About this RNA
A member of the RNA family "Plant small nucleolar RNA R71" from Panicum miliaceum, 107 nucleotides long. Pairs were carried over by alignment from the consensus structure, which was predicted with PFOLD. The literature on the family includes a 2003 paper in Trends Plant Sci by Brown et al., "Plant snoRNAs: functional evolution and new modes of gene expression". The match comes from Rfam's covariance-model search (43 bits). The family has 25 seed sequences and 278,378 matches in Rfam 15.1. Rfam links the family to the GO terms RNA processing and nucleolus. Rfam classes the family as a C/D-box small nucleolar RNA.
RNA sequence: AUCCCAUGAUAAGGAUAGAUGAGGAUAUAUUCUUGCAGCCUCUCCCAAGCUUCAGGUAUUGUCUCCAUCCCUAUCUGCUGGAAACUCGAGAUCUUUCCGUGCAGGAU
Dot-bracket structure: (.((((................................................(..................).........................))..)).)